[Rfam]
RNA sequence: CCGGGCCCAGGUUCUGUCAUGCACUCGGACCUGGACUCUGGAGCGGUCAGUGCAUGACAGAACUUGGGCCUGGA
Numbered sequence: 001c002c003g004g005g006c007c008c009a010g011g012u013u014c015u016g017u018c019a020u021g022c023a024c025u026c027g028g029a030c031c032u033g034g035a036c037u038c039u040g041g042a043g044c045g046g047u048c049a050g051u052g053c054a055u056g057a058c059a060g061a062a063c064u065u066g067g068g069c070c071u072g073g074a
Base pairs, nucleotide, nucleotide: 004070005069006068007067008066009065010064011063012062013061014060015059016058022052023051024050025049028048029047030046031045
Rfam assigns this 74-nucleotide RNA from Ornithorhynchus anatinus to the family "mir-148/mir-152 microRNA precursor family".
The match comes from Rfam's covariance-model search (80 bits).
Pairs were carried over by alignment from the consensus structure, which was predicted with RNAalifold.